[Rfam]
RNA sequence: GCUCCGUCGCCCCAGUGUUCAGACUACCUGUUCAGGCGGGCAGGGAUGUACAGUAGUCUGCACAUUGGUUAGACUGGGCA
Numbered sequence: 001g002c003u004c005c006g007u008c009g010c011c012c013c014a015g016u017g018u019u020c021a022g023a024c025u026a027c028c029u030g031u032u033c034a035g036g037c038g039g040g041c042a043g044g045g046a047u048g049u050a051c052a053g054u055a056g057u058c059u060g061c062a063c064a065u066u067g068g069u070u071a072g073a074c075u076g077g078g079c080a
Stems, first nucleotide, its partner, number of pairs: 012068007020060007028053004033048002